[Rfam]
RNA sequence: AAGCAACACUCUGUGGCAGAUGACCAAAACUAUCUGACAAGAUCUGAGCUGGCUAUAGCAAUAAAGUUGAAUCUUUUCUAAUGCUCUCUCCUCUGUGAGACAAGCUGUUACAUAGACUUAGAUGGU
Number, nucleotide and partner (000 for none) at each position: 001a000002a000003g000004c000005a000006a000007c000008a000009c048010u047011c046012u041013g000014u039015g038016g000017c036018a035019g034020a033021u032022g031023a000024c000025c000026a000027a000028a000029a000030c000031u022032a021033u020034c019035u018036g017037a000038c015039a014040a000041g012042a000043u000044c000045u000046g011047a010048g009049c000050u000051g000052g000053c000054u000055a000056u000057a000058g000059c000060a000061a000062u000063a000064a119065a118066g117067u116068u115069g000070a113071a000072u000073c000074u112075u000076u110077u000078c000079u107080a106081a000082u104083g000084c000085u000086c000087u100088c099089u098090c097091c000092u000093c000094u000095g000096u000097g090098a089099g088100a087101c000102a000103a000104g082105c000106u080107g079108u000109u000110a076111c000112a074113u070114a000115g068116a067117c066118u065119u064120a000121g000122a000123u000124g000125g000126u000

Rfam assigns this 126-nucleotide RNA sequence from Phyllostomus discolor to the family "Small nucleolar RNA SNORA28". The match comes from Rfam's covariance-model search (97 bits). The source organism's lineage runs through Eukaryota, Vertebrata, Euteleostomi, Chiroptera and Phyllostomus. The family's consensus secondary structure was predicted with RNAfold. The family's RNA type in Rfam is H/ACA-box small nucleolar RNA. Clan: SNORA28 clan. About the family: ACA28 is a member of the H/ACA class of snoRNA that guide the sites of modification of uridines to pseudouridines.